[Rfam]
RNA sequence: UUCUUAUCCAGAGAGGUAGAGGGACUGGCCCUAUGACACCUCGGCAGCGGACUGAUGAACCGUGCCAAUUCCAGCAGGCAGAUUGCCUGAAAGAUAAGAA
Dot-bracket structure: ((((((((....(((((...(((.[[[[)))......)))))((((.(((.........)))))))...(]]]](((((.....)))))..)))))))))
Numbered sequence: 001u002u003c004u005u006a007u008c009c010a011g012a013g014a015g016g017u018a019g020a021g022g023g024a025c026u027g028g029c030c031c032u033a034u035g036a037c038a039c040c041u042c043g044g045c046a047g048c049g050g051a052c053u054g055a056u057g058a059a060c061c062g063u064g065c066c067a068a069u070u071c072c073a074g075c076a077g078g079c080a081g082a083u084u085g086c087c088u089g090a091a092a093g094a095u096a097a098g099a100a
Stems, first nucleotide, its partner, number of pairs: 001100008013042005021031003025074004043066004048062003070092001075089005

This 100-nucleotide RNA sequence from Bacillus sp. NRRL B-14911 belongs to the Rfam family "SAM riboswitch aptamer (S box leader)". Lineage of the source: Bacteria > Bacillota > Bacilli > Caryophanales > Bacillus. The base pairs follow the family's consensus structure, which is taken from published work.